[Rfam]
Description: This 102-nucleotide sequence from Radiobacillus deserti belongs to the Rfam family "BsrF". Rfam classes the family as a small RNA.
RNA sequence: GCGAUGAGCUAUUUUGUGUAAGUCGAGAAACGCUUAACGAUGAAUGUGGUCAUCGGUUUUUCGCCACAAAACGUAGGAUGCCUUUUCCAGGAGAAAGGCAUC
Numbered sequence: 001g002c003g004a005u006g007a008g009c010u011a012u013u014u015u016g017u018g019u020a021a022g023u024c025g026a027g028a029a030a031c032g033c034u035u036a037a038c039g040a041u042g043a044a045u046g047u048g049g050u051c052a053u054c055g056g057u058u059u060u061u062c063g064c065c066a067c068a069a070a071a072c073g074u075a076g077g078a079u080g081c082c083u084u085u086u087c088c089a090g091g092a093g094a095a096a097g098g099c100a101u102c
Stems, first nucleotide, its partner, number of pairs: 014069005024063008038055002041052003077102009
The base pairs follow the family's consensus structure, which was predicted with WAR. A search with the family's covariance model found it, with a score of 71 bits.